This 139-nucleotide RNA from Xenorhabdus cabanillasii belongs to the Rfam family "CpoB/ybgF ICR thermometer". A search with the family's covariance model found it, with a score of 119 bits. The source organism's lineage runs through Bacteria, Pseudomonadota, Enterobacterales, Morganellaceae and Xenorhabdus. Rfam links the family to the GO terms response to temperature stimulus and regulation of translation. By type it is an RNA thermoregulator. On this family, see Righetti et al., Proc Natl Acad Sci U S A 2016: "Temperature-responsive in vitro RNA structurome of Yersinia pseudotuberculosis". Rfam's curators write: Imprinting control region from upstream of cpoB/ybgF (tol/pal system protein).

[Rfam]
RNA sequence: CCAGCUCGCUAUCGUUUCUUAUGGUAAAGAAAAACCAGCUGUACUUGGUCAUGACGAAGCAGCAUACGCUAAAAACCGUCGCGCUGUAAUCGUAUACUAAGAGUAAGGCAUGAACAGUAACUUCAGACGUUUUGUAUUG
Numbered sequence: 001c002c003a004g005c006u007c008g009c010u011a012u013c014g015u016u017u018c019u020u021a022u023g024g025u026a027a028a029g030a031a032a033a034a035c036c037a038g039c040u041g042u043a044c045u046u047g048g049u050c051a052u053g054a055c056g057a058a059g060c061a062g063c064a065u066a067c068g069c070u071a072a073a074a075a076c077c078g079u080c081g082c083g084c085u086g087u088a089a090u091c092g093u094a095u096a097c098u099a100a101g102a103g104u105a106a107g108g109c110a111u112g113a114a115c116a117g118u119a120a121c122u123u124c125a126g127a128c129g130u131u132u133u134g135u136a137u138u139g
Stems, first nucleotide, its partner, number of pairs: 001047001003045002007041002014035004019030002054138001057135001059133001062130002065127001068124001075118002078115001079113003083109002087105002090102001